RNA sequence: GUGCCCUUUUAAGGUUGUCUCAGUGCCUUAGGAGGCUAACACAGAAGUAAGUAUUUAUAAAACCCAGAGAAGAGAUGAUAAACCUCCUCUUUGGAACCUGUCUGGAGUCACAGCU
Numbered sequence: 001g002u003g004c005c006c007u008u009u010u011a012a013g014g015u016u017g018u019c020u021c022a023g024u025g026c027c028u029u030a031g032g033a034g035g036c037u038a039a040c041a042c043a044g045a046a047g048u049a050a051g052u053a054u055u056u057a058u059a060a061a062a063c064c065c066a067g068a069g070a071a072g073a074g075a076u077g078a079u080a081a082a083c084c085u086c087c088u089c090u091u092u093g094g095a096a097c098c099u100g101u102c103u104g105g106a107g108u109c110a111c112a113g114c115u
Stems, first nucleotide, its partner, number of pairs: 002049003007046004014040004019035001021032001051109001054106004064094007072086003

A member of the RNA family "Small nucleolar RNA SNORA26" from Myotis lucifugus, 115 nucleotides long. On this family, see Huttenhofer et al., EMBO J 2001: "RNomics: an experimental approach that identifies 201 candidates for novel, small, non-messenger RNAs in mouse". Taxonomically the source falls in Myotis (Eukaryota, Deuterostomia, Teleostomi, Euteleostomi). The snoRNA HBI-6 belong to the H/ACA family of snoRNAs, guiding the pseudouridylation of position U4522 if the 28S rRNA. HBI-6 is the human orthologue of mouse MBI-6 snoRNA. The base pairs follow the family's consensus structure, which was predicted with RNAalifold. The match comes from Rfam's covariance-model search (98 bits).